[Rfam]
This 130-nucleotide RNA sequence from Salmo salar belongs to the Rfam family "Small nucleolar RNA SNORA49".
Pairs were carried over by alignment from the consensus structure, which was predicted with RNAalifold.
The snoRNA ACA49 has no identified RNA target. NB genomic sequence 1-nt different from published.
RNA sequence: GCUCCCUGUCUAACACUGGGACCUCUUGAUUCAGUGCAGUGUUCUGGCACUAUAAGGGGACAGAGUACUACGCUCUCUUCCCUCCCUACUGGAUGCUGUUCCUCCUAGGGCCUUAAGAGAAGCACACAGU
Numbered sequence: 001g002c003u004c005c006c007u008g009u010c011u012a013a014c015a016c017u018g019g020g021a022c023c024u025c026u027u028g029a030u031u032c033a034g035u036g037c038a039g040u041g042u043u044c045u046g047g048c049a050c051u052a053u054a055a056g057g058g059g060a061c062a063g064a065g066u067a068c069u070a071c072g073c074u075c076u077c078u079u080c081c082c083u084c085c086c087u088a089c090u091g092g093a094u095g096c097u098g099u100u101c102c103u104c105c106u107a108g109g110g111c112c113u114u115a116a117g118a119g120a121a122g123c124a125c126a127c128a129g130u
Stems, first nucleotide, its partner, number of pairs: 003060005009054001016047006023039002026036001072123002076119001084110005091103002
Dot-bracket structure: ..(((((.(......((((((.((.(.........).))..))))))......).)))))...........((..(.......(((((..((.........))..)))))........)..)).......